[Rfam]
RNA sequence: GGCGGGGCUGAUCGCUACAAUGAUCAUGAAAGUGGCUCUCCCAGGGUGAGGCUCAUCCAUUGCACUUUGGGUGUGCUGAUCCCUGUGAUUUCCCCAAAUGUGGGAAACUCAACUGCAUAAUUUAUGGUAGUGGAGGACUGUGUUUACACUUUCCCCUG
Numbered sequence: 001g002g003c004g005g006g007g008c009u010g011a012u013c014g015c016u017a018c019a020a021u022g023a024u025c026a027u028g029a030a031a032g033u034g035g036c037u038c039u040c041c042c043a044g045g046g047u048g049a050g051g052c053u054c055a056u057c058c059a060u061u062g063c064a065c066u067u068u069g070g071g072u073g074u075g076c077u078g079a080u081c082c083c084u085g086u087g088a089u090u091u092c093c094c095c096a097a098a099u100g101u102g103g104g105a106a107a108c109u110c111a112a113c114u115g116c117a118u119a120a121u122u123u124a125u126g127g128u129a130g131u132g133g134a135g136g137a138c139u140g141u142g143u144u145u146a147c148a149c150u151u152u153c154c155c156c157u158g
Stems, first nucleotide, its partner, number of pairs: 002116004006042002010038002014036003020033002043084004048080001050077003054073005086111003089107003093103002132157002135154003140149003